[Rfam]
The family of this 265-nucleotide RNA sequence from Thielaviopsis punctulata is "Group I catalytic intron".
Pairs were carried over by alignment from the consensus structure, which is taken from published work.

RNA sequence: GAACCUUCUGCUAGAAAUCAUCAAAUUGCGGGAACACCCUAAAGCUAUCAUAACCAAGUAAAUGUAGUAAUAUGUUUAUGGCACAGGUAAUGACUCGUGGUAAGGUAAAAUCAUGAUAGAUAAUUUAAUGGGUUAUCCGCAGCCAAGCACCAAAUAUUUUAAUACUUGGUGUGCAGUUCAUCGACUAAAUGUUGAUUGGUGUUAUAAUAGAAGAUUAUUCGUUAUAAUGCUUAAGAUAUAGUCAGGCCUCAUUUGAAAGAAUGCA
Number, nucleotide and partner (000 for none) at each position: 001g000002a000003a000004c000005c000006u000007u000008c000009u000010g000011c000012u000013a000014g000015a000016a197017a196018u195019c194020a193021u000022c191023a190024a000025a000026u000027u141028g140029c139030g138031g137032g136033a000034a000035c000036a000037c132038c131039c130040u000041a000042a000043a000044g000045c000046u000047a000048u000049c000050a000051u000052a000053a000054c000055c000056a000057a000058g000059u000060a000061a000062a000063u000064g000065u000066a000067g000068u000069a000070a000071u000072a000073u000074g000075u000076u000077u000078a000079u000080g000081g000082c000083a000084c000085a000086g000087g000088u000089a000090a000091u000092g000093a000094c000095u000096c000097g000098u000099g000100g000101u000102a000103a000104g000105g000106u000107a000108a000109a000110a000111u000112c000113a000114u000115g000116a000117u000118a000119g000120a000121u000122a000123a000124u000125u000126u000127a000128a000129u000130g039131g038132g037133u000134u000135a000136u032137c031138c030139g029140c028141a027142g177143c176144c000145a000146a000147g172148c171149a170150c169151c000152a000153a000154a000155u000156a000157u164158u000159u000160u000161a000162a000163u000164a157165c000166u000167u000168g000169g150170u149171g148172u147173g000174c000175a000176g143177u142178u000179c000180a000181u244182c000183g243184a242185c241186u240187a239188a000189a000190u023191g022192u000193u020194g019195a018196u017197u016198g000199g230200u229201g228202u227203u226204a225205u224206a223207a222208u000209a000210g000211a000212a000213g000214a000215u000216u000217a000218u000219u000220c000221g000222u207223u206224a205225u204226a203227a202228u201229g200230c199231u000232u000233a000234a000235g000236a000237u000238a000239u187240a186241g185242u184243c183244a181245g000246g000247c000248c000249u000250c263251a262252u261253u260254u259255g000256a000257a000258a000259g254260a253261a252262u251263g250264c000265a000